The record is a 357-nucleotide sequence from Muricoccus nepalensis, which matches "Alphaproteobacteria transfer-messenger RNA" in Rfam. Its family is annotated with RNA catabolic process in the Gene Ontology. The organism belongs to Muricoccus, within Bacteria. Pairs were carried over by alignment from the consensus structure, which is taken from published work. A search with the family's covariance model found it, with a score of 220 bits.
[Rfam]
RNA sequence: CCCCUCGCAAUCGGGGGGCGACCGCGCUAUAUGGGUCGGGCCUCCUUCGGGCGGCUAUGGCGAUAAACGGCUCGUGGAAUAAGCGUUGCGGACCCGGGGGCAGUACCCGGCGCCUCCACCAUUCCUUCCCCGCCUUAUCAGCGGGUUCGGCGAAGCCUCCGGGCUUUUCCGAGGGAAGCAUGGGGGCGAAACAGGCUCGACGCGCGCGGUAAAGACGUGUCUUUUGCCCGGCAUUGUACCGCCGUUAUCGGGCUAAAUCACAAGUGCCAACGAUAAUGGUCGCGAGACCAUGGCGCUCGCUGCCUAGAGAUAGGUAAGCGCCGUCCGGGGGGAACGGGGCAACAGAAUCCCCCCACC
Dot-bracket structure: .......................................(((.(......).)))...(((((.....(((.(((........(((.(((...(((((.......)))))(((((((................................................................)))))))............))))))........))).)))..)))))((((.[.[..[[)))).....]].].].................................................................[[[[..((((((.]]]]...........))))))...